[Rfam]
RNA sequence: ACUUUAGAUAGAGGUUGCGUAUUUAAUGAGUAACUACGUGGAUGUGUCAGGCACAGUAGAAGCGUAGCAAAAGGUAAAUAUGCCGAAAGGUCUGAUUCCUGCAGAUCAGAUGCUUGGGCAUGCAGUAAAUAGCUGCAUGACUGUCAUCGCAAGAUGGGGCGCUAUCAAAUUC
Numbered sequence: 001a002c003u004u005u006a007g008a009u010a011g012a013g014g015u016u017g018c019g020u021a022u023u024u025a026a027u028g029a030g031u032a033a034c035u036a037c038g039u040g041g042a043u044g045u046g047u048c049a050g051g052c053a054c055a056g057u058a059g060a061a062g063c064g065u066a067g068c069a070a071a072a073g074g075u076a077a078a079u080a081u082g083c084c085g086a087a088a089g090g091u092c093u094g095a096u097u098c099c100u101g102c103a104g105a106u107c108a109g110a111u112g113c114u115u116g117g118g119c120a121u122g123c124a125g126u127a128a129a130u131a132g133c134u135g136c137a138u139g140a141c142u143g144u145c146a147u148c149g150c151a152a153g154a155u156g157g158g159g160c161g162c163u164a165u166c167a168a169a170u171u172c
Base pairs, nucleotide, nucleotide: 007166008165009164010163011162017083018082019081020080021079022078023077024076025075034067035066036065037064038063039062087115088114089113090111091110092109093108094107095106096105097104116142117141119139120138121137122136123135124134125133126132144157145156146155147154148153

Shown here is a 172-nucleotide sequence from Butyrivibrio sp. INlla14, a member of the family "Lysine riboswitch aptamer". The organism belongs to Butyrivibrio, within Bacteria. A search with the family's covariance model found it, with a score of 110 bits.